[Rfam]
RNA sequence: GGUCACAGUGAUGAUUCAGGAAAUUCAAGAUCAACAGACCGGAAUGCAGGCCUCUCUUUUUCUAGAGAUUUUUGCGUGUCGACCUUCUCGCUGACCUGAGUGAUC
Dot-bracket structure: ((((((.............................................................................................))))))
The family of this 105-nucleotide RNA from Manihot esculenta is "Small nucleolar RNA Z107/R87".
Gene Ontology terms of the family: RNA processing and nucleolus.
Rfam classes the family as a C/D-box small nucleolar RNA.
On this family, see Barneche et al., J Mol Biol 2001: "Identification of 66 box C/D snoRNAs in Arabidopsis thaliana: extensive gene duplications generated multiple isoforms predicting new ribosomal RNA 2'-O-methylation sites".
The base pairs follow the family's consensus structure, which was predicted with RNAfold.